Shown here is a 352-nucleotide part of an RNA from Salinibacter ruber, a member of the family "Bacterial small subunit ribosomal RNA".
A reference for the family is Cannone et al. (2002), "The comparative RNA web (CRW) site: an online database of comparative sequence and structure information for ribosomal, intron, and other RNAs", BMC Bioinformatics.
The organism belongs to Salinibacter ruber, within Bacteria.
Rfam's curators put it in the seed alignment.

RNA sequence: GGUGUAAAGGGUGUGCAGGCGGGGCAGCAAGUCGGAUGUGAAACCCCAUGGCUUAACCAUGGAGGUGCAUUCGAAACUGUUGCUCUUGAGUCCCGGAGAGGCUGUCGGAAUUCGUGGUGUAGCGGUGAAAUGCGUAGAUAUCACGAGGAACACCAGAGGCGAAAGCGGACAGCUGGACGGGUACUGACGCUCAGGCACGAAAGCGUGGGGAGCAAACAGGAUUAGAUACCCUGGUAGUCCACGCCGUAAACGAUGAAUGCUCGCCGUUGCCUCGUUAGGGGGCAGUGGCUAAGCUAACGCGUUAAGCAUUCCACCUGGGGAGUACGAUCGCAAGGUUGAAACUCAAAGGAAU
Numbered sequence: 001g002g003u004g005u006a007a008a009g010g011g012u013g014u015g016c017a018g019g020c021g022g023g024g025c026a027g028c029a030a031g032u033c034g035g036a037u038g039u040g041a042a043a044c045c046c047c048a049u050g051g052c053u054u055a056a057c058c059a060u061g062g063a064g065g066u067g068c069a070u071u072c073g074a075a076a077c078u079g080u081u082g083c084u085c086u087u088g089a090g091u092c093c094c095g096g097a098g099a100g101g102c103u104g105u106c107g108g109a110a111u112u113c114g115u116g117g118u119g120u121a122g123c124g125g126u127g128a129a130a131u132g133c134g135u136a137g138a139u140a141u142c143a144c145g146a147g148g149a150a151c152a153c154c155a156g157a158g159g160c161g162a163a164a165g166c167g168g169a170c171a172g173c174u175g176g177a178c179g180g181g182u183a184c185u186g187a188c189g190c191u192c193a194g195g196c197a198c199g200a201a202a203g204c205g206u207g208g209g210g211a212g213c214a215a216a217c218a219g220g221a222u223u224a225g226a227u228a229c230c231c232u233g234g235u236a237g238u239c240c241a242c243g244c245c246g247u248a249a250a251c252g253a254u255g256a257a258u259g260c261u262c263g264c265c266g267u268u269g270c271c272u273c274g275u276u277a278g279g280g281g282g283c284a285g286u287g288g289c290u291a292a293g294c295u296a297a298c299g300c301g302u303u304a305a306g307c308a309u310u311c312c313a314c315c316u317g318g319g320g321a322g323u324a325c326g327a328u329c330g331c332a333a334g335g336u337u338g339a340a341a342c343u344c345a346a347a348g349g350a351a352u
Base pairs, nucleotide, nucleotide: 001315002314003313009312011198012197013196014195018191019190020189022085023084024083025082026081027080028079030078031077032074033073034072035071036070037069038068039067040066046062047061048060049059050058051057089185090184091183092181093180094179095178100174101173102172103171104170105169106168107151111147112146113145114144115143116142117141118140122133123132124131159166160165203244204243205242206241207240208239212238213237217233218232219231220230255311256310257309258308259307260306263289264288265287266286267285268284269283270282271281272280273279293300294299317344318343319342326337327336328335329334